[Rfam]
RNA sequence: UGGCGCCCAAUGUGGAGACCCAGGUACGAGGGCUUCAGUGAAGAACAUCACUAAGGAGAGCCGGACAUAUCAAAAAGAAAAGAAAUAGAGAUAGUUGCAAGACGGGGGCCUGCUGAAGCAACAAAGACCUCAGUAAGUGAGCUAUGAUAUGGGACAAGAAAUGAGUCAACAUGAAUUGUUUGUUGAAGACCUCAAGAAGACACUUAAGGCAUGAGAGAUUAGGCUUAAAACACAGGAUUUGUUAAAGUUUUCUGUAUUUAUUAAGGAAGUUUGUCCCU
Numbered sequence: 001u002g003g004c005g006c007c008c009a010a011u012g013u014g015g016a017g018a019c020c021c022a023g024g025u026a027c028g029a030g031g032g033c034u035u036c037a038g039u040g041a042a043g044a045a046c047a048u049c050a051c052u053a054a055g056g057a058g059a060g061c062c063g064g065a066c067a068u069a070u071c072a073a074a075a076a077g078a079a080a081a082g083a084a085a086u087a088g089a090g091a092u093a094g095u096u097g098c099a100a101g102a103c104g105g106g107g108g109c110c111u112g113c114u115g116a117a118g119c120a121a122c123a124a125a126g127a128c129c130u131c132a133g134u135a136a137g138u139g140a141g142c143u144a145u146g147a148u149a150u151g152g153g154a155c156a157a158g159a160a161a162u163g164a165g166u167c168a169a170c171a172u173g174a175a176u177u178g179u180u181u182g183u184u185g186a187a188g189a190c191c192u193c194a195a196g197a198a199g200a201c202a203c204u205u206a207a208g209g210c211a212u213g214a215g216a217g218a219u220u221a222g223g224c225u226u227a228a229a230a231c232a233c234a235g236g237a238u239u240u241g242u243u244a245a246a247g248u249u250u251u252c253u254g255u256a257u258u259u260a261u262u263a264a265g266g267a268a269g270u271u272u273g274u275c276c277c278u
Stems, first nucleotide, its partner, number of pairs: 006032003012027003037048001038046002088131003092125001096121001097119002103115003138156002142153002163204001165201003212254002215251005222240002225237002263278001265276003
Rfam assigns this 278-nucleotide RNA from Mesocricetus auratus to the family "Mason-Pfizer monkey virus packaging signal". From the family's description: This family represents a group of sequences that are related to the Mason-Pfizer monkey virus (MPMV) packaging signal. The packaging signal is located in the 5' UTR and is required for specific RNA encapsidation. For this family Rfam cites "Mutational analysis of the predicted secondary RNA structure of the Mason-Pfizer monkey virus packaging signal" (Mustafa et al., Virus Res, 2004). Taxonomically the source falls in Mesocricetus (Eukaryota, Metazoa, Craniata, Cricetidae). Rfam classes the family as a cis-regulatory element. It scores 104 bits against the family's covariance model.